[Rfam]
RNA: Small nucleolar RNA snoR53Y
RNA sequence: GUUCCCUAUGAUGCUUCAGUGUAAACCAUGCUAAUGCUGAUAGAUCCAUGAUUGAUCCUUUCUUAUUCAUAUACUGAGGGAGUU
Dot-bracket structure: (((((((.....................................................................))))))).
Numbered sequence: 001g002u003u004c005c006c007u008a009u010g011a012u013g014c015u016u017c018a019g020u021g022u023a024a025a026c027c028a029u030g031c032u033a034a035u036g037c038u039g040a041u042a043g044a045u046c047c048a049u050g051a052u053u054g055a056u057c058c059u060u061u062c063u064u065a066u067u068c069a070u071a072u073a074c075u076g077a078g079g080g081a082g083u084u
Stems, first nucleotide, its partner, number of pairs: 001083007